mir-276 microRNA precursor family: an 86-nucleotide RNA from Vanessa tameamea.
The family's consensus secondary structure was predicted with RNAalifold.
The source organism's lineage runs through Eukaryota, Pancrustacea, Panorpida, Heteroneura and Vanessa.
A search with the family's covariance model found it, with a score of 84 bits.
RNA sequence: CCUGGUGAAUGCCACUAGCGAGGUAUAGAGUUCCUACGUAAUAUACAACUGUAGGAACUUCAUACCGUGCUCUUGGGUUUGCCAAU
Numbered sequence: 001c002c003u004g005g006u007g008a009a010u011g012c013c014a015c016u017a018g019c020g021a022g023g024u025a026u027a028g029a030g031u032u033c034c035u036a037c038g039u040a041a042u043a044u045a046c047a048a049c050u051g052u053a054g055g056a057a058c059u060u061c062a063u064a065c066c067g068u069g070c071u072c073u074u075g076g077g078u079u080u081g082c083c084a085a086u
Stems, first nucleotide, its partner, number of pairs: 012076003017071004022066005028060010
About this RNA: Rfam links the family to the GO terms miRNA-mediated post-transcriptional gene silencing and RISC complex.